[Rfam]
MIR2617 microRNA precursor family: an 85-nucleotide RNA sequence from Medicago truncatula.
The match comes from Rfam's covariance-model search (74 bits).
The family's consensus secondary structure was predicted with RNAalifold.
RNA sequence: AUGUAGUGUAGCAUACCCGUUGUGGAAUUACUCUGAUGAAUAUUUGUUAUUUAAUUGUUUUUGUGUAACGGGGUGUUACACCUCC
Numbered sequence: 001a002u003g004u005a006g007u008g009u010a011g012c013a014u015a016c017c018c019g020u021u022g023u024g025g026a027a028u029u030a031c032u033c034u035g036a037u038g039a040a041u042a043u044u045u046g047u048u049a050u051u052u053a054a055u056u057g058u059u060u061u062u063g064u065g066u067a068a069c070g071g072g073g074u075g076u077u078a079c080a081c082c083u084c085c
Stems, first nucleotide, its partner, number of pairs: 003084001006081009016072006